A member of the RNA family "Actinobacteria sRNA Ms_IGR-5" from Pseudosporangium ferrugineum, 227 nucleotides long. The match comes from Rfam's covariance-model search (103 bits). The pairing is the family consensus, mapped onto this sequence. By type it is a small RNA.
RNA sequence: ACACGUGAAGGGAGGUGGUCCGAAGUUGUAUAGCAACGGGACUCGUGAGGUGGCUGUCCGCUAGCCGCUGUCCUCGACAGCUUCGAGAAAGUUCUCUGCAAUAACGUCGAGACCGUGUGGCAGCGGUGCGGCGAAUACCAGACAGCCACCCGACCCCCGGGGAUCCGGCCUUGUCCGACCGGACCGUGCUCCACCAGGCGCGCGGAAGUCCCCGGGGGUCGCUUAUU
Numbered sequence: 001a002c003a004c005g006u007g008a009a010g011g012g013a014g015g016u017g018g019u020c021c022g023a024a025g026u027u028g029u030a031u032a033g034c035a036a037c038g039g040g041a042c043u044c045g046u047g048a049g050g051u052g053g054c055u056g057u058c059c060g061c062u063a064g065c066c067g068c069u070g071u072c073c074u075c076g077a078c079a080g081c082u083u084c085g086a087g088a089a090a091g092u093u094c095u096c097u098g099c100a101a102u103a104a105c106g107u108c109g110a111g112a113c114c115g116u117g118u119g120g121c122a123g124c125g126g127u128g129c130g131g132c133g134a135a136u137a138c139c140a141g142a143c144a145g146c147c148a149c150c151c152g153a154c155c156c157c158c159g160g161g162g163a164u165c166c167g168g169c170c171u172u173g174u175c176c177g178a179c180c181g182g183a184c185c186g187u188g189c190u191c192c193a194c195c196a197g198g199c200g201c202g203c204g205g206a207a208g209u210c211c212c213c214g215g216g217g218g219u220c221g222c223u224u225a226u227u
Stems, first nucleotide, its partner, number of pairs: 014058006059133004064129002067124004072119001151221013165182004170177001